[Rfam]
Notes: Shown here is an 89-nucleotide sequence from Paenibacillus sp. GP183, a member of the family "c-di-GMP-I-GGC riboswitch aptamer". The base pairs follow the family's consensus structure, which is taken from published work. Rfam 15.1 lists 1,298 matches to the family in 717 species. Its family is annotated with cyclic-di-GMP binding in the Gene Ontology. The match comes from Rfam's covariance-model search (60 bits). NCBI's taxonomy places the organism under Bacteria, Bacillota, Bacilli, Caryophanales, Paenibacillus.
RNA sequence: CUCGAUAAUGGCAAAACUGGCGAAAGCCAGCGACGCAAAGCUAAAGGGGCUCCGUUCUCCAUCUGGAACGUGCUUGCCAGCUGCCGAAG
Numbered sequence: 001c002u003c004g005a006u007a008a009u010g011g012c013a014a015a016a017c018u019g020g021c022g023a024a025a026g027c028c029a030g031c032g033a034c035g036c037a038a039a040g041c042u043a044a045a046g047g048g049g050c051u052c053c054g055u056u057c058u059c060c061a062u063c064u065g066g067a068a069c070g071u072g073c074u075u076g077c078c079a080g081c082u083g084c085c086g087a088a089g
Stems, first nucleotide, its partner, number of pairs: 001089001003086002011036002017030005034076001039082004046078002048074003